[Rfam]
RNA sequence: ACGUUUCUAUCUUUGCAGUCAUGUUUACAAAAACUGUACAUACUUGGUGGUGGAAUAACUUACGUCAAACGUCGUGAGCUAGCUACUAGUUUGUAUAAUCUAUUAUAUAAAAAAGGCUUGUC
Numbered sequence: 001a002c003g004u005u006u007c008u009a010u011c012u013u014u015g016c017a018g019u020c021a022u023g024u025u026u027a028c029a030a031a032a033a034c035u036g037u038a039c040a041u042a043c044u045u046g047g048u049g050g051u052g053g054a055a056u057a058a059c060u061u062a063c064g065u066c067a068a069a070c071g072u073c074g075u076g077a078g079c080u081a082g083c084u085a086c087u088a089g090u091u092u093g094u095a096u097a098a099u100c101u102a103u104u105a106u107a108u109a110a111a112a113a114a115g116g117c118u119u120g121u122c
Stems, first nucleotide, its partner, number of pairs: 036101001038099001040096004046090001049087004056081002059078003062072003